RNA: Small nucleolar RNA U3
Organism: Muntiacus reevesi
RNA sequence: AAGACUACGCUUUCAGGGUUCAUUGCUAGAGAAUUUUUCUUGAGUGGGUAUUGUACUAUUAUUUGUACCCAUAAGUCACGAGGGAGAGGUACAGUGUUCCUUACUGAGUGUGAUACCAAUUCUUGGUAGUGUUUUUUCUUUGUAACUGCCAUUGGUUGUUGAUGAUCUAUUUUCUUAUUAUUUGAGAGAGUUAAAAAGAAAAAAAAGGUUAUGUGAGUGGU
Numbered sequence: 001a002a003g004a005c006u007a008c009g010c011u012u013u014c015a016g017g018g019u020u021c022a023u024u025g026c027u028a029g030a031g032a033a034u035u036u037u038u039c040u041u042g043a044g045u046g047g048g049u050a051u052u053g054u055a056c057u058a059u060u061a062u063u064u065g066u067a068c069c070c071a072u073a074a075g076u077c078a079c080g081a082g083g084g085a086g087a088g089g090u091a092c093a094g095u096g097u098u099c100c101u102u103a104c105u106g107a108g109u110g111u112g113a114u115a116c117c118a119a120u121u122c123u124u125g126g127u128a129g130u131g132u133u134u135u136u137u138c139u140u141u142g143u144a145a146c147u148g149c150c151a152u153u154g155g156u157u158g159u160u161g162a163u164g165a166u167c168u169a170u171u172u173u174c175u176u177a178u179u180a181u182u183u184g185a186g187a188g189a190g191u192u193a194a195a196a197a198g199a200a201a202a203a204a205a206a207g208g209u210u211a212u213g214u215g216a217g218u219g220g221u
Base pairs, nucleotide, nucleotide: 001041002040003039004038007034010031011030015027016026018024049065050064053062054061075221076220077219078218079217094209095208097205098204101201102200104198105197108168110167118157119156120155121154124151125150126149127148131146132145133144135142171194172193174190175189176188178186179185